[Rfam]
RNA sequence: AGUCUUGCAGUACCUGCACUCAGCAGCAUUCUGUGGAAUGUUCAAAAAGCAGUGCUACACCAGUGCAGCAUUUUGCCUCCUUGGUUUUCAUUCUGCUGUGUCUGUUAAAGCUGGUGCCUUUGCUGAAAUAGUC
Numbered sequence: 001a002g003u004c005u006u007g008c009a010g011u012a013c014c015u016g017c018a019c020u021c022a023g024c025a026g027c028a029u030u031c032u033g034u035g036g037a038a039u040g041u042u043c044a045a046a047a048a049g050c051a052g053u054g055c056u057a058c059a060c061c062a063g064u065g066c067a068g069c070a071u072u073u074u075g076c077c078u079c080c081u082u083g084g085u086u087u088u089c090a091u092u093c094u095g096c097u098g099u100g101u102c103u104g105u106u107a108a109a110g111c112u113g114g115u116g117c118c119u120u121u122g123c124u125g126a127a128a129u130a131g132u133c
Stems, first nucleotide, its partner, number of pairs: 002055002005052003014049001015046001016041003020037002023034004058122002063117002066113003075101002078098001
About this RNA:
Shown here is a 133-nucleotide sequence from Cinclus mexicanus, a member of the family "Small nucleolar RNA SNORA8". Its Rfam clan is "SNORA8 clan". It scores 40 bits against the family's covariance model. It is annotated as an H/ACA-box small nucleolar RNA. Rfam describes the family as follows. ACA8 is a member of the H/ACA class of snoRNA that guide the sites of modification of uridines to pseudouridines.